RNA sequence: CACAGAAAAGGAAAUGGUGUCUUCCUGAUUGAACCGCCCUAAAAAGCUGAUGGCGCCUGGUUAAUU
Numbered sequence: 001c002a003c004a005g006a007a008a009a010g011g012a013a014a015u016g017g018u019g020u021c022u023u024c025c026u027g028a029u030u031g032a033a034c035c036g037c038c039c040u041a042a043a044a045a046g047c048u049g050a051u052g053g054c055g056c057c058u059g060g061u062u063a064a065u066u
Stems, first nucleotide, its partner, number of pairs: 010025004016057006036047002

Rfam assigns this 66-nucleotide sequence from Pedobacter sp. PACM 27299 to the family "Fluoride riboswitch aptamer (crcB RNA motif)".
A reference for the family is Ren et al. (2012), "Fluoride ion encapsulation by Mg2+ ions and phosphates in a fluoride riboswitch", Nature.
The family has 289 seed sequences and 2,293 matches in Rfam 15.1.
It scores 40 bits against the family's covariance model.